[Rfam]
RNA sequence: CCUUCUCUACAGGUUGGGAUCAGUCGCGUUGCUUUGUUUGUCUGUGGUAUUGCAUUUGUUCCGGUCUGUUGAAGUUGC
Numbered sequence: 001c002c003u004u005c006u007c008u009a010c011a012g013g014u015u016g017g018g019a020u021c022a023g024u025c026g027c028g029u030u031g032c033u034u035u036g037u038u039u040g041u042c043u044g045u046g047g048u049a050u051u052g053c054a055u056u057u058g059u060u061c062c063g064g065u066c067u068g069u070u071g072a073a074g075u076u077g078c
Stems, first nucleotide, its partner, number of pairs: 004074001006072001009069006016062005022056003026053003030049004

Shown here is a 78-nucleotide sequence from Ornithorhynchus anatinus, a member of the family "mir-92 microRNA precursor family". From the family's description: This family represents the microRNA precursor mir-92. Lineage of the source: Eukaryota > Vertebrata > Teleostomi > Euteleostomi > Ornithorhynchus. Its family is annotated with RISC complex and miRNA-mediated post-transcriptional gene silencing in the Gene Ontology. A reference for the family is Mourelatos et al. (2002), "miRNPs: a novel class of ribonucleoproteins containing numerous microRNAs", Genes Dev. Its Rfam clan is "mir-92 microRNA precursor clan".